[Rfam]
Nucleotides: 075
Stems, first nucleotide, its partner, number of pairs: 012045003016041002020075006027039003050065003055060001
Number, partner (000 for none) and nucleotide at each position: 001000c002000c003000a004000g005000u006000a007000g008000c009000u010000u011000a012045g013044g014043g015000c016041c017040u018000a019000u020075a021074g022073c023072a024071g025070a026000a027039g028038u029037g030000u031000u032000c033000a034000u035000c036000u037029c038028a039027c040017a041016g042000u043014u044013c045012c046000u047000g048000u049000c050065a051064g052063a053000u054000c055060u056000c057000a058000g059000u060055a061000a062000c063052u064051c065050u066000a067000a068000a069000c070025u071024c072023u073022g074021c075020u